[Rfam]
RNA sequence: GAGCUGUGAUGUUUCAUGCCUUUCUGUUGGUGGGGUCCAUCAAUUUUGUCUGAUCUUUAAGUGAAGAGUUUAAUAGGCCUUUCUGAGCUC
Numbered sequence: 001g002a003g004c005u006g007u008g009a010u011g012u013u014u015c016a017u018g019c020c021u022u023u024c025u026g027u028u029g030g031u032g033g034g035g036u037c038c039a040u041c042a043a044u045u046u047u048g049u050c051u052g053a054u055c056u057u058u059a060a061g062u063g064a065a066g067a068g069u070u071u072a073a074u075a076g077g078c079c080u081u082u083c084u085g086a087g088c089u090c
Base pairs, nucleotide, nucleotide: 001090002089003088004087

small nucleolar RNA snoR114: a 90-nucleotide sequence from Lactuca sativa. It scores 50 bits against the family's covariance model. Taxonomically the source falls in Lactuca (Eukaryota, Embryophyta, Mesangiospermae, Lactucinae). The family's RNA type in Rfam is C/D-box small nucleolar RNA.